[Rfam]
Nucleotides: 106
Stems, first nucleotide, its partner, number of pairs: 025100008037087003042082001044080001045078004
Number, partner (000 for none) and nucleotide at each position: 001000u002000g003000g004000u005000u006000g007000u008000a009000g010000c011000c012000a013000a014000a015000u016000u017000g018000a019000a020000u021000g022000g023000u024000u025100g026099a027098g028097a029096a030095g031094u032093u033000u034000a035000c036000u037087g038086g039085c040000c041000a042082g043000c044080c045078a046077u047076u048075g049000u050000g051000a052000g053000a054000u055000u056000u057000a058000u059000c060000u061000a062000a063000a064000u065000c066000u067000c068000u069000g070000u071000c072000a073000a074000u075048u076047a077046a078045u079000g080044g081000a082042u083000c084000u085039g086038c087037u088000u089000a090000c091000c092000g093032a094031g095030c096029u097028u098027c099026u100025c101000a102000c103000a104000u105000u106000u

Background
A member of the RNA family "Small nucleolar RNA snoR109" from Rosa chinensis, 106 nucleotides long. Gene Ontology terms of the family: RNA processing and nucleolus. Taxonomically the source falls in Rosa (Eukaryota, Spermatophyta, eudicotyledons, Rosales). Pairs were carried over by alignment from the consensus structure, which was predicted with WAR. Rfam classes the family as an H/ACA-box small nucleolar RNA.